The family of this 261-nucleotide part of an RNA from uncultured marine crenarchaeote 'Gulf of Maine' is "Archaeal large subunit ribosomal RNA".
[Rfam]
RNA sequence: GAAUAACUGAGGGGAACUUGCUCCUAGUACGAGAGGAACAGAGCAGGGUGGCCACUGGUUUACCGGUUGUCUGAUAAGGCAGGCCGGGCAGCUAAGCCGUUUAGGCUAAGUGCUGAAAGCAUCUAAGCACGAAUCCUAUCCCGAGACAAGUUAUUCUUUCGUAAGAUGAAGGUCGGCAGUCCAAUACUGCGUUGAUAGGAAGGUGGUGUAAAUGACAAGCUUCGGCGAGUCGUGAGCCAGCCUUUACUAAUAGACCAACAU
Numbered sequence: 001g002a003a004u005a006a007c008u009g010a011g012g013g014g015a016a017c018u019u020g021c022u023c024c025u026a027g028u029a030c031g032a033g034a035g036g037a038a039c040a041g042a043g044c045a046g047g048g049u050g051g052c053c054a055c056u057g058g059u060u061u062a063c064c065g066g067u068u069g070u071c072u073g074a075u076a077a078g079g080c081a082g083g084c085c086g087g088g089c090a091g092c093u094a095a096g097c098c099g100u101u102u103a104g105g106c107u108a109a110g111u112g113c114u115g116a117a118a119g120c121a122u123c124u125a126a127g128c129a130c131g132a133a134u135c136c137u138a139u140c141c142c143g144a145g146a147c148a149a150g151u152u153a154u155u156c157u158u159u160c161g162u163a164a165g166a167u168g169a170a171g172g173u174c175g176g177c178a179g180u181c182c183a184a185u186a187c188u189g190c191g192u193u194g195a196u197a198g199g200a201a202g203g204u205g206g207u208g209u210a211a212a213u214g215a216c217a218a219g220c221u222u223c224g225g226c227g228a229g230u231c232g233u234g235a236g237c238c239a240g241c242c243u244u245u246a247c248u249a250a251u252a253g254a255c256c257a258a259c260a261u
Stems, first nucleotide, its partner, number of pairs: 001156008011142004017047007048100005056094003063087005068081005103137003110130005171256004176190004196249003199245005204239003209234001212233005219226001

Gene Ontology terms of the family: ribosome and structural constituent of ribosome.